The family of this 77-nucleotide sequence from Citrus x clementina is "Small nucleolar RNA SNORD18". Its family is annotated with RNA processing and nucleolus in the Gene Ontology. A reference for the family is Prislei et al. (1993), "Two different snoRNAs are encoded in introns of amphibian and human L1 ribosomal protein genes", Nucleic Acids Res. The source organism's lineage runs through Eukaryota, Tracheophyta, Spermatophyta, Gunneridae and Citrus.
[Rfam]
RNA sequence: GAGAUAUGAUGAUAAAUCUUUUGGUCCGUGUUUCUGAUUUAACCGUGACCGAUAACCUUUUGCCAAUAUCUGAUCUC
Numbered sequence: 001g002a003g004a005u006a007u008g009a010u011g012a013u014a015a016a017u018c019u020u021u022u023g024g025u026c027c028g029u030g031u032u033u034c035u036g037a038u039u040u041a042a043c044c045g046u047g048a049c050c051g052a053u054a055a056c057c058u059u060u061u062g063c064c065a066a067u068a069u070c071u072g073a074u075c076u077c
Stems, first nucleotide, its partner, number of pairs: 001077004

Record summary: By type it is a C/D-box small nucleolar RNA.